The family of this 182-nucleotide sequence from Streptomyces sp. DvalAA-14 is "c-di-AMP riboswitch aptamer (ydaO/yuaA leader)". The match comes from Rfam's covariance-model search (41 bits). The base pairs follow the family's consensus structure.
[Rfam]
RNA sequence: GCCGCGCGGAUGCCAGGUCGACACGAGAGCAACGGCGGGAGCGGAGGACCCAGCACGACGGGGCCGGCCACGGAAACUGCUUCCCGGCCGUCCCCUUGGGGUGAAGCCGCGCUGUGCGGCCGGGCAUCUUCGCCUGCCCGAACCCGACAGGUCAUCCUUCGCAGGCAGAUGACGAAGGGUCG
Numbered sequence: 001g002c003c004g005c006g007c008g009g010a011u012g013c014c015a016g017g018u019c020g021a022c023a024c025g026a027g028a029g030c031a032a033c034g035g036c037g038g039g040a041g042c043g044g045a046g047g048a049c050c051c052a053g054c055a056c057g058a059c060g061g062g063g064c065c066g067g068c069c070a071c072g073g074a075a076a077c078u079g080c081u082u083c084c085c086g087g088c089c090g091u092c093c094c095c096u097u098g099g100g101g102u103g104a105a106g107c108c109g110c111g112c113u114g115u116g117c118g119g120c121c122g123g124g125c126a127u128c129u130u131c132g133c134c135u136g137c138c139c140g141a142a143c144c145c146g147a148c149a150g151g152u153c154a155u156c157c158u159u160c161g162c163a164g165g166c167a168g169a170u171g172a173c174g175a176a177g178g179g180u181c182g
Base pairs, nucleotide, nucleotide: 002039003038041162042161043160044159045158046157051098052097099145100144101143107119108118109117110116122139123138124137125136